RNA sequence: GUUGUUGCAUACGUAACAGCAGAAGUGUUCACAUCGUGGCCCCUGUCAGAUUCUUAUGCAUAUGUGAAUUCUGCU
Numbered sequence: 001g002u003u004g005u006u007g008c009a010u011a012c013g014u015a016a017c018a019g020c021a022g023a024a025g026u027g028u029u030c031a032c033a034u035c036g037u038g039g040c041c042c043c044u045g046u047c048a049g050a051u052u053c054u055u056a057u058g059c060a061u062a063u064g065u066g067a068a069u070u071c072u073g074c075u
Stems, first nucleotide, its partner, number of pairs: 013040002018075007025037003047064002050061002053058001
Source information:
A member of the RNA family "Mammalian CPEB3 ribozyme" from Platysternon megacephalum, 75 nucleotides long. The base pairs follow the family's consensus structure, which is taken from published work. The literature on the family includes a 2006 paper in Science by Salehi-Ashtiani et al., "A genomewide search for ribozymes reveals an HDV-like sequence in the human CPEB3 gene". NCBI's taxonomy places the organism under Eukaryota, Craniata, Sarcopterygii, Testudinoidea, Platysternon.